[Rfam]
Shown here is a 242-nucleotide sequence from Allosphingosinicella ginsenosidimutans, a member of the family "permuted transfer-messenger RNA". Bacterial tmRNA, also known as 10Sa RNA or SsrA, is named for its dual tRNA and mRNA-like properties. Its role is to liberate the mRNA from a stalled ribosome. Lineage of the source: Bacteria > Pseudomonadota > Sphingomonadales > Sphingomicrobiaceae > Allosphingosinicella. It is annotated as a non-coding RNA gene.
RNA sequence: GGCGAUAAACGACGGUGUGCAAUAGGCACAGCGGACCCGGGGGCAGUACCCGGCGGCUCCACCAUCUGGGCCGAGCCGCGCGACCAGCCCGCAUGACGCGGGCCGGCCGGGCGGCUCAGCUGAUGGGGCCGAACCAGGAUCGACGUGUGUUGAAAAGCACCGACUUUCGCUCGGAAGGGGCCACCGUGACGGCUCAUCACACAAGUGCCAACGAUAACGAGGCGCUCGCGAUUGCCGCGUAA
Numbered sequence: 001g002g003c004g005a006u007a008a009a010c011g012a013c014g015g016u017g018u019g020c021a022a023u024a025g026g027c028a029c030a031g032c033g034g035a036c037c038c039g040g041g042g043g044c045a046g047u048a049c050c051c052g053g054c055g056g057c058u059c060c061a062c063c064a065u066c067u068g069g070g071c072c073g074a075g076c077c078g079c080g081c082g083a084c085c086a087g088c089c090c091g092c093a094u095g096a097c098g099c100g101g102g103c104c105g106g107c108c109g110g111g112c113g114g115c116u117c118a119g120c121u122g123a124u125g126g127g128g129c130c131g132a133a134c135c136a137g138g139a140u141c142g143a144c145g146u147g148u149g150u151u152g153a154a155a156a157g158c159a160c161c162g163a164c165u166u167u168c169g170c171u172c173g174g175a176a177g178g179g180g181c182c183a184c185c186g187u188g189a190c191g192g193c194u195c196a197u198c199a200c201a202c203a204a205g206u207g208c209c210a211a212c213g214a215u216a217a218c219g220a221g222g223c224g225c226u227c228g229c230g231a232u233u234g235c236c237g238c239g240u241a242a
Stems, first nucleotide, its partner, number of pairs: 001171005014161004027149003031146003037053005054131007172186003